[Rfam]
The record is a 130-nucleotide RNA sequence from Streptomyces luteolifulvus, which matches "Streptomyces RNA 5676" in Rfam. By type it is a small RNA. About the family: Identified by deep sequencing of transcriptome at the end of exponential growth phase. Appears longer on northern blot than sequencing transcript. It scores 118 bits against the family's covariance model. The source organism's lineage runs through Bacteria, Actinomycetota, Kitasatosporales, Streptomycetaceae and Streptomyces.
Nucleotides: 130
Stems, first nucleotide, its partner, number of pairs: 004121004009117002018039009042074001044072004049067002052064003076089004095111007122129002
Number, partner (000 for none) and nucleotide at each position: 001000a002000g003000a004121u005120g006119a007118g008000a009117g010116a011000u012000a013000c014000a015000c016000c017000c018039c019038g020037c021036u022035c023034a024033c025032a026031g027000g028000g029000c030000a031026c032025u033024g034023u035022g036021g037020g038019c039018g040000a041000c042074a043000a044072c045071a046070g047069g048000c049067c050066g051000g052064g053063g054062c055000c056000u057000c058000c059000c060000c061000a062054g063053c064052u065000a066050c067049g068000g069047u070046c071045u072044g073000g074042u075000c076089g077088u078087g079086c080000c081000c082000u083000c084000g085000c086079g087078c088077a089076c090000a091000c092000a093000a094000a095111c096110g097109g098108g099107g100106c101105u102000u103000c104000u105101g106100g107099c108098u109097c110096c111095g112000g113000a114000u115000c116010u117009c118007c119006u120005c121004a122129c123128c124000g125000a126000u127000c128123g129122g130000a